RNA sequence: UCCUAUGAUGGUAUGAAAUCUUUGAGACCUGAGUUUCUUUUAAAUUUGAUGAAACAUACAAGCUUUUUUGUUUCUGAGGAU
Numbered sequence: 001u002c003c004u005a006u007g008a009u010g011g012u013a014u015g016a017a018a019u020c021u022u023u024g025a026g027a028c029c030u031g032a033g034u035u036u037c038u039u040u041u042a043a044a045u046u047u048g049a050u051g052a053a054a055c056a057u058a059c060a061a062g063c064u065u066u067u068u069u070g071u072u073u074c075u076g077a078g079g080a081u
Stems, first nucleotide, its partner, number of pairs: 001080003032047001034043001
Small nucleolar RNA R66: an 81-nucleotide RNA from Thalictrum thalictroides.
NCBI's taxonomy places the organism under Eukaryota, Viridiplantae, Embryophyta, Euphyllophyta, Thalictrum.
Rfam 15.1 lists 584 matches to the family in 219 species.